[Rfam]
RNA sequence: UGGCCAAUGAUGAAAAGUGAGUUGUACAGAUACUCUUUUGAGUUGAAUUAAGUACACACAUAGAAUCUGAGGCCU
Numbered sequence: 001u002g003g004c005c006a007a008u009g010a011u012g013a014a015a016a017g018u019g020a021g022u023u024g025u026a027c028a029g030a031u032a033c034u035c036u037u038u039u040g041a042g043u044u045g046a047a048u049u050a051a052g053u054a055c056a057c058a059c060a061u062a063g064a065a066u067c068u069g070a071g072g073c074c075u
Base pairs, nucleotide, nucleotide: 002074003073004072005071
RNA: Small nucleolar RNA Z163/Z177 family
Organism: Oryza brachyantha